[Rfam]
RNA sequence: CUACAAUCCCGAACUAUCGCCUUGUGCAAGCAGGGAGGAAAGUCCGGACAGCAUAGGGCAACCCACCGGUGAAGAGCCGGGUGUUUCUUUUGAAGCAACAGACAGUGCCACAGAAAAUAACCGCCUUAGGGUAAGGGUGAAAACGUAAGGUAAGAGCUUACGAUGUAUUGCAGCGAUGCAACAUAUGGGUAAACCUUGGGGGCUGUAAUGCCACGUAUAGGUUCGUCUGAAAGCGGCCCGCUUUCGAUUCCACCGGUGAGUGGACACGAACCAGGGUAGGCAGCAACAGGUAAACAGCAAUGUUUAUCGCAGAUAAAUGAUAGUGUAAAAACAGAAUCCGGCUUACGAGGUUUGUAGUUUU
Number, nucleotide and partner (000 for none) at each position: 001c357002u356003a355004c354005a353006a352007u000008c350009c349010c000011g346012a000013a324014c323015u322016a321017u320018c319019g000020c035021c034022u033023u032024g031025u030026g000027c000028a000029a000030g025031c024032a023033g022034g021035g020036a000037g000038g000039a000040a344041a343042g342043u000044c341045c340046g339047g338048a337049c205050a204051g203052c202053a000054u000055a000056g000057g257058g000059c255060a000061a000062c200063c199064c198065a197066c080067c079068g078069g077070u076071g000072a000073a000074g000075a000076g070077c069078c068079g067080g066081g099082u097083g096084u095085u094086u093087c092088u000089u000090u000091u000092g087093a086094a085095g084096c083097a082098a000099c081100a196101g195102a000103c000104a000105g194106u193107g190108c189109c188110a000111c000112a000113g000114a000115a000116a000117a000118u000119a000120a000121c136122c135123g132124c131125c130126u000127u000128a000129g000130g125131g124132u123133a000134a000135g122136g121137g000138u000139g000140a000141a000142a000143a000144c162145g161146u160147a159148a158149g157150g000151u000152a000153a000154g000155a000156g000157c149158u148159u147160a146161c145162g144163a000164u185165g184166u183167a000168u181169u180170g179171c178172a177173g000174c000175g000176a000177u172178g171179c170180a169181a168182c000183a166184u165185a164186u000187g000188g109189g108190u107191a000192a000193a106194c105195c101196u100197u065198g064199g063200g062201g000202g052203c051204u050205g049206u000207a000208a000209u282210g281211c280212c279213a000214c000215g000216u000217a000218u000219a000220g272221g271222u270223u269224c268225g000226u000227c000228u000229g000230a000231a000232a000233g000234c000235g000236g000237c000238c000239c000240g000241c000242u000243u000244u000245c000246g000247a000248u000249u264250c263251c262252a261253c260254c000255g059256g000257u057258g000259a000260g253261u252262g251263g250264a249265c000266a000267c000268g224269a223270a222271c221272c220273a000274g000275g000276g000277u000278a000279g212280g211281c210282a209283g000284c000285a000286a000287c000288a000289g308290g307291u306292a305293a304294a303295c302296a301297g000298c000299a000300a000301u296302g295303u294304u293305u292306a291307u290308c289309g000310c000311a000312g000313a000314u000315a000316a000317a000318u000319g018320a017321u016322a015323g014324u013325g000326u000327a000328a000329a000330a000331a000332c000333a000334g000335a000336a000337u048338c047339c046340g045341g044342c042343u041344u040345a000346c011347g000348a000349g009350g008351u000352u006353u005354g004355u003356a002357g001358u000359u000360u000361u000
Source information:
This 361-nucleotide RNA sequence from Panacibacter ginsenosidivorans belongs to the Rfam family "Bacterial RNase P class A".